[Rfam]
RNA sequence: CAUCCAUCGAGACCGGCUGAGGGACAGGCCCUUUGAAGCCGGGGCAACCUGAUGGGGUGCAGCUGCAGUGCAGUGCGCCCAUGUCGCGGUGCCAAAUCCUGCGGGGACCUGUGUGUCCACCGGAAGAUGGUUG
Numbered sequence: 001c002a003u004c005c006a007u008c009g010a011g012a013c014c015g016g017c018u019g020a021g022g023g024a025c026a027g028g029c030c031c032u033u034u035g036a037a038g039c040c041g042g043g044g045c046a047a048c049c050u051g052a053u054g055g056g057g058u059g060c061a062g063c064u065g066c067a068g069u070g071c072a073g074u075g076c077g078c079c080c081a082u083g084u085c086g087c088g089g090u091g092c093c094a095a096a097u098c099c100u101g102c103g104g105g106g107a108c109c110u111g112u113g114u115g116u117c118c119a120c121c122g123g124a125a126g127a128u129g130g131u132u133g
Base pairs, nucleotide, nucleotide: 001133002132004130005129006128007127008126013042014041015040016039017038021031022030023029025101026100027099028098043093044092045091046090048089049088050086051085052084053083097125102122103121104120106118
This 133-nucleotide RNA sequence from Thermomonas carbonis belongs to the Rfam family "SAM riboswitch aptamer (S box leader)".